Rfam assigns this 71-nucleotide sequence from Flavobacterium psychrophilum to the family "Flavo-1 RNA". Taxonomically the source falls in Flavobacterium psychrophilum (Bacteria, Pseudomonadati, Bacteroidota, Flavobacteriaceae).

RNA sequence: UUUUAGCCCUGAUGGAUGUGAAAAUCCUCGCCAUUUUUCUUGGCGAGAUUGAAACGACAGCAGGUAUAUGG
Numbered sequence: 001u002u003u004u005a006g007c008c009c010u011g012a013u014g015g016a017u018g019u020g021a022a023a024a025u026c027c028u029c030g031c032c033a034u035u036u037u038u039c040u041u042g043g044c045g046a047g048a049u050u051g052a053a054a055c056g057a058c059a060g061c062a063g064g065u066a067u068a069u070g071g
Stems, first nucleotide, its partner, number of pairs: 009063003013059002018055002023050004029045005
Rfam's curators put it in the seed alignment.